The record is a 134-nucleotide sequence from Melopsittacus undulatus, which matches "Small nucleolar RNA SNORA41" in Rfam. The base pairs follow the family's consensus structure, which was predicted with PFOLD. ACA41 is a member of the H/ACA class of snoRNA that guide the sites of modification of uridines to pseudouridines. A reference for the family is Huttenhofer et al. (2001), "RNomics: an experimental approach that identifies 201 candidates for novel, small, non-messenger RNAs in mouse", EMBO J. A search with the family's covariance model found it, with a score of 98 bits. By type it is an H/ACA-box small nucleolar RNA.
Nucleotides: 134
Base pairs, nucleotide, nucleotide: 003061004060005059006058017047018046019045021043022042023041024040025039075123076122077121079119089113090112091110092109093108095106
Number, partner (000 for none) and nucleotide at each position: 001000c002000u003061c004060c005059a006058c007000a008000g009000c010000u011000a012000c013000u014000g015000g016000u017047c018046u019045g020000g021043a022042a023041c024040u025039g026000u027000u028000c029000a030000g031000a032000a033000u034000u035000g036000u037000a038000g039025c040024a041023g042022u043021u044000g045019c046018a047017g048000u049000a050000u051000u052000c053000c054000c055000u056000c057000u058006g059005u060004g061003g062000c063000a064000a065000a066000u067000a068000a069000a070000c071000u072000g073000u074000u075123a076122c077121a078000c079119a080000g081000g082000a083000u084000u085000a086000a087000g088000c089113u090112c091110u092109u093108u094000c095106u096000c097000a098000g099000a100000u101000c102000c103000u104000c105000u106095g107000a108093a109092a110091a111000g112090g113089a114000c115000u116000u117000c118000c119079u120000a121077u122076g123075u124000a125000a126000c127000a128000a129000a130000c131000a132000a133000c134000a